A member of the RNA family "Glycine riboswitch aptamer" from Shewanella violacea, 133 nucleotides long. Taxonomically the source falls in Shewanella violacea (Bacteria, Gammaproteobacteria, Alteromonadales, Shewanella). It scores 48 bits against the family's covariance model. Rfam's curators write: This family represents the bacterial glycine riboswitch. Glycine riboswitches usually consist of two metabolite-binding aptamers domains with similar structures in tandem. The aptamers cooperatively bind glycine to regulate the expression of downstream genes.
RNA sequence: GGACGAGCCUCUGGAGAGAUCGCAACUCGCUUAGAUUUUAUCGAGUCAUUAUGCGGCGCCGAAGACGAAAGUGCCUAAGUGAGCUAUUCACUUAGGCGCGAAACGCUCAGGCAAAAAGGACAGAGGAGAGGAU
Numbered sequence: 001g002g003a004c005g006a007g008c009c010u011c012u013g014g015a016g017a018g019a020u021c022g023c024a025a026c027u028c029g030c031u032u033a034g035a036u037u038u039u040a041u042c043g044a045g046u047c048a049u050u051a052u053g054c055g056g057c058g059c060c061g062a063a064g065a066c067g068a069a070a071g072u073g074c075c076u077a078a079g080u081g082a083g084c085u086a087u088u089c090a091c092u093u094a095g096g097c098g099c100g101a102a103a104c105g106c107u108c109a110g111g112c113a114a115a116a117a118g119g120a121c122a123g124a125g126g127a128g129a130g131g132a133u
Stems, first nucleotide, its partner, number of pairs: 008126006020056004058112003061108002066105002071099013
Dot-bracket structure: .......((((((......((((.............................)))).(((((...((...(((((((((((((...)))))))))))))....)).)).)))........)))))).......